[Rfam]
RNA sequence: GCCGCGCCUACUCCGACGGGAGGAAAACCGGGUUCCCUUGCCCGGCUGGCGCGGCACCUGUUGCAAGGG
Numbered sequence: 001g002c003c004g005c006g007c008c009u010a011c012u013c014c015g016a017c018g019g020g021a022g023g024a025a026a027a028c029c030g031g032g033u034u035c036c037c038u039u040g041c042c043c044g045g046c047u048g049g050c051g052c053g054g055c056a057c058c059u060g061u062u063g064c065a066a067g068g069g
Stems, first nucleotide, its partner, number of pairs: 001055008011022004028045005035069006
A member of the RNA family "int-alpA RNA" from Aromatoleum aromaticum, 69 nucleotides long.
It is annotated as a small RNA.
Rfam describes the family as follows. Acidobacteria (1 example), Planctomycetes (1 example), Proteobacteria.
The organism belongs to Aromatoleum aromaticum, within Bacteria.
The family's consensus secondary structure is taken from published work.